Shown here is a 306-nucleotide RNA from Cocos nucifera, a member of the family "Plant signal recognition particle RNA". The family's RNA type in Rfam is non-coding RNA gene. Rfam links the family to the GO terms SRP-dependent cotranslational protein targeting to membrane, signal sequence recognition and signal recognition particle, endoplasmic reticulum targeting. NCBI's taxonomy places the organism under Eukaryota, Arecaceae, Arecoideae, Cocoseae, Cocos. It scores 213 bits against the family's covariance model. Rfam 15.1 lists 4,988 matches to the family in 266 species.
RNA sequence: GCCGAGCUCAUUCGCGGGAGCUUUUAACCCGAGUGGGGGCAAUGGGUGGUUUGGACGUUUGGGUAUGCCCGUUGGUCUGGAUGCAGAUGGGGCAUAUGGCUGGCUCGCCCUUUCCAAGUUGGGUAGUGGGAUGCGCGGCUUGGGUGAAAGCUUGGGUCACGCCUCUCCUAAAGUGGAGGGAACCGCGUCAGGCUGGCUUAACAGAGCAGCGAAUACCUCCCUCUCUUAACGGUGGAAGGAUAAUGGGCCACCGCCCCAUGUAUCCUCUACAGCCCACGGGCAUACCCAUAGCGGACAACCAUUUUU
Numbered sequence: 001g002c003c004g005a006g007c008u009c010a011u012u013c014g015c016g017g018g019a020g021c022u023u024u025u026a027a028c029c030c031g032a033g034u035g036g037g038g039g040c041a042a043u044g045g046g047u048g049g050u051u052u053g054g055a056c057g058u059u060u061g062g063g064u065a066u067g068c069c070c071g072u073u074g075g076u077c078u079g080g081a082u083g084c085a086g087a088u089g090g091g092g093c094a095u096a097u098g099g100c101u102g103g104c105u106c107g108c109c110c111u112u113u114c115c116a117a118g119u120u121g122g123g124u125a126g127u128g129g130g131a132u133g134c135g136c137g138g139c140u141u142g143g144g145u146g147a148a149a150g151c152u153u154g155g156g157u158c159a160c161g162c163c164u165c166u167c168c169u170a171a172a173g174u175g176g177a178g179g180g181a182a183c184c185g186c187g188u189c190a191g192g193c194u195g196g197c198u199u200a201a202c203a204g205a206g207c208a209g210c211g212a213a214u215a216c217c218u219c220c221c222u223c224u225c226u227u228a229a230c231g232g233u234g235g236a237a238g239g240a241u242a243a244u245g246g247g248c249c250a251c252c253g254c255c256c257c258a259u260g261u262a263u264c265c266u267c268u269a270c271a272g273c274c275c276a277c278g279g280g281c282a283u284a285c286c287c288a289u290a291g292c293g294g295a296c297a298a299c300c301a302u303u304u305u306u
Base pairs, nucleotide, nucleotide: 001040002039003038004023005022006021007020008019009018011016028037029036030035044304045303046302047301048300049299050298051297053296056293057292058290060288062286063285064284065283066282067281069280070279073276074275075274077272078271079265080264081263082262083261084260085259090256091255092254101250102249103248104247105246106245107244109239110238112237113236114235115234116233118230119229120228121227122226123225126222128167129166130165131164133162134161135160137158138157139156140155141154142153143152144151145150168173175220176219177218178217179216186211187210188209193204194203195202